[Rfam]
RNA sequence: UUGCAGCGGGUAAGUCCUAUACGACCAGCUCCCUUUGAAUCCCCCAGGGCUUGAUCGCAGCAAGGGUAUUUGGUUGUAGCGGUGCGAUGUAGUUAGCUUACCCACCU
Numbered sequence: 001u002u003g004c005a006g007c008g009g010g011u012a013a014g015u016c017c018u019a020u021a022c023g024a025c026c027a028g029c030u031c032c033c034u035u036u037g038a039a040u041c042c043c044c045c046a047g048g049g050c051u052u053g054a055u056c057g058c059a060g061c062a063a064g065g066g067u068a069u070u071u072g073g074u075u076g077u078a079g080c081g082g083u084g085c086g087a088u089g090u091a092g093u094u095a096g097c098u099u100a101c102c103c104a105c106c107u
Stems, first nucleotide, its partner, number of pairs: 008103008017092005022086002024083002
The family of this 107-nucleotide RNA sequence from Paludibacter jiangxiensis is "Bacteroidales small SRP". For this family Rfam cites "A high-resolution transcriptome map identifies small RNA regulation of metabolism in the gut microbe Bacteroides thetaiotaomicron" (Ryan et al., Nat Commun, 2020). By type it is a non-coding RNA gene. The family's consensus secondary structure is taken from published work. Lineage of the source: Bacteria > Bacteroidota > Bacteroidia > Bacteroidales > Paludibacter.